Record summary
Rfam assigns this 276-nucleotide sequence from Sciurus vulgaris to the family "Mason-Pfizer monkey virus packaging signal". This family represents a group of sequences that are related to the Mason-Pfizer monkey virus (MPMV) packaging signal. On this family, see Mustafa et al., Virus Res 2004: "Mutational analysis of the predicted secondary RNA structure of the Mason-Pfizer monkey virus packaging signal". The match comes from Rfam's covariance-model search (192 bits).
RNA sequence: UGGCGCCCAACGUGGGGCUUGGAUACGGGGGAAUUCAUGAGGGAAGAGGCGUUUAAUGGUUCGGCCGAACAAAGCAGAAAUCAGUUCAAGAAGGAUCGCCGCAGGAGCCUGCUGUGCCACUCUUAAAGGUACAGUAGCACCUAACUAUGGGACAAGAAUUAAGUAAGCAUAAAGUUUUUGUUAAGCAAUUAAAAGAAGCUUUAAAGACACGAGGAGUAAAGGUUAAAAGUAAUGAUCUCUUUAAGUUUUUUGACCUUAUUAAGGACACCUGUCCAU
Numbered sequence: 001u002g003g004c005g006c007c008c009a010a011c012g013u014g015g016g017g018c019u020u021g022g023a024u025a026c027g028g029g030g031g032a033a034u035u036c037a038u039g040a041g042g043g044a045a046g047a048g049g050c051g052u053u054u055a056a057u058g059g060u061u062c063g064g065c066c067g068a069a070c071a072a073a074g075c076a077g078a079a080a081u082c083a084g085u086u087c088a089a090g091a092a093g094g095a096u097c098g099c100c101g102c103a104g105g106a107g108c109c110u111g112c113u114g115u116g117c118c119a120c121u122c123u124u125a126a127a128g129g130u131a132c133a134g135u136a137g138c139a140c141c142u143a144a145c146u147a148u149g150g151g152a153c154a155a156g157a158a159u160u161a162a163g164u165a166a167g168c169a170u171a172a173a174g175u176u177u178u179u180g181u182u183a184a185g186c187a188a189u190u191a192a193a194a195g196a197a198g199c200u201u202u203a204a205a206g207a208c209a210c211g212a213g214g215a216g217u218a219a220a221g222g223u224u225a226a227a228a229g230u231a232a233u234g235a236u237c238u239c240u241u242u243a244a245g246u247u248u249u250u251u252g253a254c255c256u257u258a259u260u261a262a263g264g265a266c267a268c269c270u271g272u273c274c275a276u
Stems, first nucleotide, its partner, number of pairs: 006031003012026003036046001038044001082128001085125001094120001100116005135155001137153001140151004160203003163199002210252008220238006261276001263274004